The record is a 68-nucleotide sequence from Gillisella ampelina, which matches "ybhL leader" in Rfam. By type it is a cis-regulatory leader. NCBI's taxonomy places the organism under Bacteria, Pseudomonadati, Pseudomonadota, Rhizobiaceae, Gillisella ampelina. From the family's description: This family is a putative regulatory RNA structure that is found upstream of an uncharacterized membrane protein in alpha-proteobacteria. It scores 53 bits against the family's covariance model.
[Rfam]
Nucleotides: 068
Base pairs, nucleotide, nucleotide: 012066013065014064015063016062017061018060019059023049024048025047030044031043032042033041035039
Number, partner (000 for none) and nucleotide at each position: 001000u002000a003000c004000g005000c006000a007000u008000g009000c010000u011000g012066g013065a014064g015063c016062c017061c018060c019059g020000c021000a022000g023049c024048g025047g026000c027000g028000c029000u030044u031043g032042g033041g034000a035039c036000a037000c038000u039035g040000u041033c042032c043031c044030g045000c046000a047025c048024c049023g050000u051000g052000a053000a054000c055000a056000a057000u058000c059019c060018g061017g062016g063015g064014c065013u066012u067000a068000a